The record is a 406-nucleotide sequence from Bordetella avium, which matches "transfer-messenger RNA" in Rfam. The family's consensus secondary structure is taken from published work. Rfam classes the family as a non-coding RNA gene. The family is grouped with related families in Rfam's "tRNA clan". It is one of the family's seed sequences. Taxonomically the source falls in Bordetella avium (Bacteria, Betaproteobacteria, Burkholderiales, Bordetella).
[Rfam]
RNA sequence: GGGGCCGAUCCGGAUUCGACGUGGGUCAUGAAACAGUUCAGGGCAUGUCGAGCACCAGUACGCUCGUAAAACCACUGGAAACAAUACAAACGCCAACGACGAGCGUUUCGCUCUCGCCGCUUAAGCGGUGAGCCGCUGCACUGAUCUGUCCUUGGGUCAGGCGGAGGAAGCAACUCCCGUAAGGGAGCCAUCGCCUAAAGGGGCAACCCUUGAACCGCAGCAGUGUUAUUCACAAGGAAUCGGUCUGCGCUGGGGUCACACGGUUCAGGCUUAAAUUACGUGAAUCGCUUCGGUCCGGCCCGUUGAUCGGCUAAGUCCGGGGUUAAAUCCAAAUAGAUCAACUAAGCAUGUAGAACUGACUGCGGAGGGCUUGCGGACGGGGGUUCAAUUCCCCCCGGCUCCACCA
Numbered sequence: 001g002g003g004g005c006c007g008a009u010c011c012g013g014a015u016u017c018g019a020c021g022u023g024g025g026u027c028a029u030g031a032a033a034c035a036g037u038u039c040a041g042g043g044c045a046u047g048u049c050g051a052g053c054a055c056c057a058g059u060a061c062g063c064u065c066g067u068a069a070a071a072c073c074a075c076u077g078g079a080a081a082c083a084a085u086a087c088a089a090a091c092g093c094c095a096a097c098g099a100c101g102a103g104c105g106u107u108u109c110g111c112u113c114u115c116g117c118c119g120c121u122u123a124a125g126c127g128g129u130g131a132g133c134c135g136c137u138g139c140a141c142u143g144a145u146c147u148g149u150c151c152u153u154g155g156g157u158c159a160g161g162c163g164g165a166g167g168a169a170g171c172a173a174c175u176c177c178c179g180u181a182a183g184g185g186a187g188c189c190a191u192c193g194c195c196u197a198a199a200g201g202g203g204c205a206a207c208c209c210u211u212g213a214a215c216c217g218c219a220g221c222a223g224u225g226u227u228a229u230u231c232a233c234a235a236g237g238a239a240u241c242g243g244u245c246u247g248c249g250c251u252g253g254g255g256u257c258a259c260a261c262g263g264u265u266c267a268g269g270c271u272u273a274a275a276u277u278a279c280g281u282g283a284a285u286c287g288c289u290u291c292g293g294u295c296c297g298g299c300c301c302g303u304u305g306a307u308c309g310g311c312u313a314a315g316u317c318c319g320g321g322g323u324u325a326a327a328u329c330c331a332a333a334u335a336g337a338u339c340a341a342c343u344a345a346g347c348a349u350g351u352a353g354a355a356c357u358g359a360c361u362g363c364g365g366a367g368g369g370c371u372u373g374c375g376g377a378c379g380g381g382g383g384u385u386c387a388a389u390u391c392c393c394c395c396c397g398g399c400u401c402c403a404c405c406a
Stems, first nucleotide, its partner, number of pairs: 001402007020375008029366001034362003038359004044350005049066005055078005113132008134225006142159004149238006243270005249264003254285001256283003288322006295315001298311003302342007379395005